[Rfam]
RNA sequence: UUUGAAAAGGGCAAACCCGUCGUGAGAUGGGGACGCAAAGCCACCGGUCCAGCGCAGUGUUGCGCAGGAUGGCGGGGCUACCGAAA
Numbered sequence: 001u002u003u004g005a006a007a008a009g010g011g012c013a014a015a016c017c018c019g020u021c022g023u024g025a026g027a028u029g030g031g032g033a034c035g036c037a038a039a040g041c042c043a044c045c046g047g048u049c050c051a052g053c054g055c056a057g058u059g060u061u062g063c064g065c066a067g068g069a070u071g072g073c074g075g076g077g078c079u080a081c082c083g084a085a086a
Stems, first nucleotide, its partner, number of pairs: 001086001003083002011036002016031006034072001039079004044075003047070003
A member of the RNA family "c-di-GMP-I-GGC riboswitch aptamer" from Povalibacter uvarum, 86 nucleotides long. Its Rfam clan is "c-di-GMP_I riboswitch clan".